[Rfam]
RNA: Gammaprotebacteria rimP leader
RNA sequence: UGCAUGGUUUUAGUAAUCAGGGUCCAGUAAUAAAAAACCCCGUAUUCGGGGUUUUUUAUUAUCUGAAACAUGACCAUUCAGGUAUUUACUGGGCUUUAUGCCCUUUUUUU
Dot-bracket structure: .................................(((((((((....)))))))))...................................((((.....)))).......